A member of the RNA family "Glycine riboswitch aptamer" from Arthrobacter echini, 99 nucleotides long. Its family is annotated with glycine biosynthetic process in the Gene Ontology.

RNA sequence: GCAACUCUGGAAAGCAGGGACGGGCACGGCCCGGACCUCACCGACGGUGCAAGCAGGCAGUCCUGCGGAAACUCUCAGGUUCCCUACAGAGCGGGGAGG
Number, nucleotide and partner (000 for none) at each position: 001g000002c094003a000004a000005c091006u090007c089008u088009g087010g000011a000012a000013a000014g000015c000016a038017g037018g036019g000020a000021c000022g000023g000024g000025c000026a000027c000028g000029g000030c000031c000032c000033g000034g000035a000036c018037c017038u016039c000040a080041c079042c078043g076044a075045c000046g000047g074048u000049g072050c000051a000052a000053g066054c065055a000056g000057g000058c000059a000060g000061u000062c000063c000064u000065g054066c053067g000068g000069a000070a000071a000072c049073u000074c047075u044076c043077a000078g042079g041080u040081u000082c000083c000084c000085u000086a000087c009088a008089g007090a006091g005092c000093g000094g002095g000096g000097a000098g000099g000
Description
It scores 34 bits against the family's covariance model.